Overview:
Shown here is a 135-nucleotide sequence from Cricetulus griseus, a member of the family "Small nucleolar RNA SNORA64/SNORA10 family". About the family: This family belongs to the H/ACA class of small nucleolar RNAs (snoRNAs) which act as guides in the the modification of uridines to pseudouridines. This family includes the human snoRNAs U64 and ACA10 and mouse MBI-29. A search with the family's covariance model found it, with a score of 86 bits. By type it is an H/ACA-box small nucleolar RNA. Its Rfam clan is "SNORA64 clan".
RNA sequence: CAUCUCUCAGCUCCGCUGGAUCACACUGGCCCAGUGUGUGCUUGGCGUGUUUUUAAGGGAGAGAGAGGAUAGCGCUCCUAAUGCACGGCAGACCAGCCCCAAAGUGGCUUCUCUGCUCCCUGGGGUGCAACAGCU
Numbered sequence: 001c002a003u004c005u006c007u008c009a010g011c012u013c014c015g016c017u018g019g020a021u022c023a024c025a026c027u028g029g030c031c032c033a034g035u036g037u038g039u040g041c042u043u044g045g046c047g048u049g050u051u052u053u054u055a056a057g058g059g060a061g062a063g064a065g066a067g068g069a070u071a072g073c074g075c076u077c078c079u080a081a082u083g084c085a086c087g088g089c090a091g092a093c094c095a096g097c098c099c100c101a102a103a104g105u106g107g108c109u110u111c112u113c114u115g116c117u118c119c120c121u122g123g124g125g126u127g128c129a130a131c132a133g134c135u
Stems, first nucleotide, its partner, number of pairs: 003066006011059003015054001019043002022040005075125004083118001090114003095109004